RNA sequence: GAGGGGCUAAAAUACCCCUCAAACUGCGUGUAAAUAGUUCGUUUCCAUUGGCCUGGACGGAUGGUUUGUGAAUC
Numbered sequence: 001g002a003g004g005g006g007c008u009a010a011a012a013u014a015c016c017c018c019u020c021a022a023a024c025u026g027c028g029u030g031u032a033a034a035u036a037g038u039u040c041g042u043u044u045c046c047a048u049u050g051g052c053c054u055g056g057a058c059g060g061a062u063g064g065u066u067u068g069u070g071a072a073u074c
Stems, first nucleotide, its partner, number of pairs: 001020006031068005037062005044057004
RNA: L13-Bacteroidia ribosomal protein leader